[Rfam]
RNA sequence: UCCGUGGUGACAUGGAAUCUGAAGGAAGCUGGAGGCAAAACACCGAUCCGAGGAACACGAAUCUCAUACAAGGUUAGAUAUGAUUGAGUGAGUUUGCCAAACAAAAUAAAGCUCUUUCUGCCGAAGGCCAUAUCAAGUAAAUGAGGCGGAUAGAUGGUGUGAAAGUGCAUGCG
Numbered sequence: 001u002c003c004g005u006g007g008u009g010a011c012a013u014g015g016a017a018u019c020u021g022a023a024g025g026a027a028g029c030u031g032g033a034g035g036c037a038a039a040a041c042a043c044c045g046a047u048c049c050g051a052g053g054a055a056c057a058c059g060a061a062u063c064u065c066a067u068a069c070a071a072g073g074u075u076a077g078a079u080a081u082g083a084u085u086g087a088g089u090g091a092g093u094u095u096g097c098c099a100a101a102c103a104a105a106a107u108a109a110a111g112c113u114c115u116u117u118c119u120g121c122c123g124a125a126g127g128c129c130a131u132a133u134c135a136a137g138u139a140a141a142u143g144a145g146g147c148g149g150a151u152a153g154a155u156g157g158u159g160u161g162a163a164a165g166u167g168c169a170u171g172c173g
Base pairs, nucleotide, nucleotide: 001016002015003014004013005012006011030171031170035166036165040160041159042158043157044156045155046151047150048149049148050147062146063145064144065143066142067141073138074137075136077134078133079132080131081130082129086114087113088112089111092107093106094105095104
RNA: Group II catalytic intron D1-D4-3
Organism: Bacillus aquiflavi